[Rfam]
RNA sequence: UAAGUUUCUGUGAUGACAUAGCUAUUUUACCUUGGGACACCUAUGAAAUGCCUUGAUUCGUGUAAACCUAUAAACUGAAUGUAUUU
Dot-bracket structure: .((((.............................................................................))))
Numbered sequence: 001u002a003a004g005u006u007u008c009u010g011u012g013a014u015g016a017c018a019u020a021g022c023u024a025u026u027u028u029a030c031c032u033u034g035g036g037a038c039a040c041c042u043a044u045g046a047a048a049u050g051c052c053u054u055g056a057u058u059c060g061u062g063u064a065a066a067c068c069u070a071u072a073a074a075c076u077g078a079a080u081g082u083a084u085u086u
Stems, first nucleotide, its partner, number of pairs: 002086004
Small nucleolar RNA Me28S-Gm3113: an 86-nucleotide RNA from Drosophila gunungcola. It is annotated as a C/D-box small nucleolar RNA. Taxonomically the source falls in elegans subgroup (in: flies) (Eukaryota, Arthropoda, Panorpida, Drosophilidae). Its family is annotated with nucleolus and RNA processing in the Gene Ontology.